[Rfam]
RNA: Manganese Mn2+ riboswitch aptamer (yybP-ykoY)
RNA sequence: UUUCCCGUCAUUGGGGAGUAGCCGCCCUGCGCCCGCAGGGGUCCGCGUCAACACACUUGGCCCUCACGGCCAUGGCGCGAACAGCUCCACGCCUGGCAAGACCUUUGACUGCACACCUUCCGGAACAAGGGCCGGGAAGGGUGCGGUCAUCUUGCGUCUGCAGGCCCUGGAGU
Numbered sequence: 001u002u003u004c005c006c007g008u009c010a011u012u013g014g015g016g017a018g019u020a021g022c023c024g025c026c027c028u029g030c031g032c033c034c035g036c037a038g039g040g041g042u043c044c045g046c047g048u049c050a051a052c053a054c055a056c057u058u059g060g061c062c063c064u065c066a067c068g069g070c071c072a073u074g075g076c077g078c079g080a081a082c083a084g085c086u087c088c089a090c091g092c093c094u095g096g097c098a099a100g101a102c103c104u105u106u107g108a109c110u111g112c113a114c115a116c117c118u119u120c121c122g123g124a125a126c127a128a129g130g131g132c133c134g135g136g137a138a139g140g141g142u143g144c145g146g147u148c149a150u151c152u153u154g155c156g157u158c159u160g161c162a163g164g165c166c167c168u169g170g171a172g173u
Stems, first nucleotide, its partner, number of pairs: 026039003041082002044079007058072005084173006